[Rfam]
RNA sequence: GGAAGCUGAUGGGGUCUGGUGGCCUCCUCGGUCUUCAAAACCGAUGAGAGCCGAGAAGGCUUUGGCAGGUUCGAUUCCUGCCUCUUCC
Dot-bracket structure: (((((..(..((((((....)))))).(((((.......)))))..(((((.......)))))..((((.......)))))..)))))
Selenocysteine transfer RNA: an 88-nucleotide RNA sequence from Aeromonas hydrophila. Rfam links the family to the GO term triplet codon-amino acid adaptor activity. NCBI's taxonomy places the organism under Bacteria, Pseudomonadota, Aeromonadales, Aeromonas, Aeromonas hydrophila subsp. hydrophila. The sequence is in the family's curated seed alignment.